[Rfam]
Rfam assigns this 46-nucleotide sequence from Aphidius gifuensis to the family "Histone 3' UTR stem-loop".
A search with the family's covariance model found it, with a score of 37 bits.
By type it is a cis-regulatory element.
Rfam 15.1 lists 44,596 matches to the family in 976 species.
RNA sequence: AAAUCGGCCCUUUUCAGGGCCAUCAAUUUAUUUAAAACGUGUUAAU
Number, nucleotide and partner (000 for none) at each position: 001a000002a000003a000004u000005c000006g021007g020008c019009c018010c017011u016012u000013u000014u000015c000016a011017g010018g009019g008020c007021c006022a000023u000024c000025a000026a000027u000028u000029u000030a000031u000032u000033u000034a000035a000036a000037a000038c000039g000040u000041g000042u000043u000044a000045a000046u000